[Rfam]
RNA sequence: GCAGGUGAAUGCAACGUCAAGCGAUGGGCGUUGCGCUCUAUAUUGUCUUACUUCCUUUGAAUUGUUGCAUAGCACAUUUAAUUCGAUACGCUGGCACGAUGCCGGCUUUU
Numbered sequence: 001g002c003a004g005g006u007g008a009a010u011g012c013a014a015c016g017u018c019a020a021g022c023g024a025u026g027g028g029c030g031u032u033g034c035g036c037u038c039u040a041u042a043u044u045g046u047c048u049u050a051c052u053u054c055c056u057u058u059g060a061a062u063u064g065u066u067g068c069a070u071a072g073c074a075c076a077u078u079u080a081a082u083u084c085g086a087u088a089c090g091c092u093g094g095c096a097c098g099a100u101g102c103c104g105g106c107u108u109u110u
Stems, first nucleotide, its partner, number of pairs: 001046004007038002010035009059084006066074003090106007
RNA: Fumarate/nitrate reductase regulator sRNA
Organism: Erwinia sp. OLSSP12